Description: Shown here is a 77-nucleotide RNA from Cryptotermes secundus, a member of the family "mir-252 microRNA precursor family". The family has 44 seed sequences and 422 matches in Rfam 15.1. The organism belongs to Cryptotermes, within Eukaryota. Its Rfam clan is "mir-252 microRNA precursor family".
RNA sequence: UUCGUGUUCUAAGUAGUUGUGCCGUAGACAAAGAAACAAUUGAACUCUUGCCUGCGCACGCCUACUUAAUACACUAA
Number, nucleotide and partner (000 for none) at each position: 001u077002u076003c000004g074005u073006g072007u071008u000009c000010u068011a067012a066013g065014u064015a063016g062017u000018u060019g059020u000021g000022c000023c000024g055025u054026a053027g052028a000029c050030a049031a000032a000033g000034a000035a000036a000037c000038a000039a000040u000041u000042g000043a000044a000045c000046u000047c000048u000049u030050g029051c000052c027053u026054g025055c024056g000057c000058a000059c019060g018061c000062c016063u015064a014065c013066u012067u011068a010069a000070u000071a007072c006073a005074c004075u000076a002077a001